[Rfam]
RNA sequence: CGUGCCGGGGUGGGCAGGCCCUGGGGCCGACUAACCCUAAUGGUGGCUGCGCCCCUCACCCCCGCCCGCUGUUUUACUCGCUGACUUUCAGCGGGCAAAGGGAGCGGCCUAAGGAAAGGGGGGGGGGUGGAAAAGAGGUCCGGCCUCAAAAAAAGCCAGCGAGGGGGUCCACACCCCGGCCCACCCUGGGGUCCCUGUCCUUCCUCCGCGACCGGGGAUACUCCGCCGUCGCCCGCGUGGAGGCCGCGGUCGGCAGGCCCAGCGCCACUACCGCCGCGAAGAGCUCGUCUCUGUCAGCCUCGGCGACGGCCUAAACGGGAGGGCCGGCCCGCCCAUUCUGGGCAGCCGGGGGACCCCAGUAGAACAAAACGGGCGCGGCGCCGCCGGGCGCUGAGCAGCCGCGGCUCCCUCAGACGUGGGAUGCGCGGCCGGCGCCGCCCCGACACCC
Numbered sequence: 001c002g003u004g005c006c007g008g009g010g011u012g013g014g015c016a017g018g019c020c021c022u023g024g025g026g027c028c029g030a031c032u033a034a035c036c037c038u039a040a041u042g043g044u045g046g047c048u049g050c051g052c053c054c055c056u057c058a059c060c061c062c063c064g065c066c067c068g069c070u071g072u073u074u075u076a077c078u079c080g081c082u083g084a085c086u087u088u089c090a091g092c093g094g095g096c097a098a099a100g101g102g103a104g105c106g107g108c109c110u111a112a113g114g115a116a117a118g119g120g121g122g123g124g125g126g127g128u129g130g131a132a133a134a135g136a137g138g139u140c141c142g143g144c145c146u147c148a149a150a151a152a153a154a155g156c157c158a159g160c161g162a163g164g165g166g167g168u169c170c171a172c173a174c175c176c177c178g179g180c181c182c183a184c185c186c187u188g189g190g191g192u193c194c195c196u197g198u199c200c201u202u203c204c205u206c207c208g209c210g211a212c213c214g215g216g217g218a219u220a221c222u223c224c225g226c227c228g229u230c231g232c233c234c235g236c237g238u239g240g241a242g243g244c245c246g247c248g249g250u251c252g253g254c255a256g257g258c259c260c261a262g263c264g265c266c267a268c269u270a271c272c273g274c275c276g277c278g279a280a281g282a283g284c285u286c287g288u289c290u291c292u293g294u295c296a297g298c299c300u301c302g303g304c305g306a307c308g309g310c311c312u313a314a315a316c317g318g319g320a321g322g323g324c325c326g327g328c329c330c331g332c333c334c335a336u337u338c339u340g341g342g343c344a345g346c347c348g349g350g351g352g353a354c355c356c357c358a359g360u361a362g363a364a365c366a367a368a369a370c371g372g373g374c375g376c377g378g379c380g381c382c383g384c385c386g387g388g389c390g391c392u393g394a395g396c397a398g399c400c401g402c403g404g405c406u407c408c409c410u411c412a413g414a415c416g417u418g419g420g421a422u423g424c425g426c427g428g429c430c431g432g433c434g435c436c437g438c439c440c441c442g443a444c445a446c447c448c
Stems, first nucleotide, its partner, number of pairs: 004180009014170001017169006051105002054102002064096008080160004085155001086153003186359007199323007225310007233303003245278005251273003256266003280292004371440004377436006399428005406421004
Dot-bracket structure: ...(((((((((.(..((((((............................((.((........((((((((........[[[[.[[[[))))))))....)).)).............................................]]].].]]]]...))))))).))))))))).....(((((((......(((((((...................(((((((.(((.........(((((.(((..(((.....)))....)))))))).((((.....))))........))))))))))......))))))).............................)))))))...........((((..((((((................(((((..((((........))))..)))))..))))))))))........

Rfam assigns this 448-nucleotide sequence from Rhagologus leucostigma to the family "Vertebrate telomerase RNA". From the family's description: Telomerase is a ribonucleoprotein reverse transcriptase that synthesises telomeric DNA. Telomerase RNAs differ greatly in sequence and structure between vertebrates, ciliates and yeasts, but they share a 5' pseudoknot structure close to the template sequence. Clan: Telomerase clan. The family's RNA type in Rfam is non-coding RNA gene. Rfam 15.1 lists 523 matches to the family in 477 species. The source organism's lineage runs through Eukaryota, Teleostomi, Euteleostomi, Sauropsida and Rhagologus. Rfam links the family to the GO terms telomerase catalytic core complex, telomere maintenance via telomerase and telomerase activity.